A member of the RNA family "c-di-GMP-I-GGC riboswitch aptamer" from Paenibacillus methanolicus, 95 nucleotides long. Lineage of the source: Bacteria > Bacillota > Bacilli > Paenibacillaceae > Paenibacillus. The family's consensus secondary structure is taken from published work. It scores 65 bits against the family's covariance model.

[Rfam]
RNA sequence: CAGGACAAAGGCAAACUUGUCGAAAGACAAGGACGCAAAGCUACAGGGUCUACCGUUUGCGCGCAUCGCGAACAAUGACAGCCUGGCCGCCGAAG
Numbered sequence: 001c002a003g004g005a006c007a008a009a010g011g012c013a014a015a016c017u018u019g020u021c022g023a024a025a026g027a028c029a030a031g032g033a034c035g036c037a038a039a040g041c042u043a044c045a046g047g048g049u050c051u052a053c054c055g056u057u058u059g060c061g062c063g064c065a066u067c068g069c070g071a072a073c074a075a076u077g078a079c080a081g082c083c084u085g086g087c088c089g090c091c092g093a094a095g
Base pairs, nucleotide, nucleotide: 001095004091011036012035016031017030018029019028020027021026034081040087041086042085045084046083047082048079049078050077
Clan: c-di-GMP_I riboswitch clan.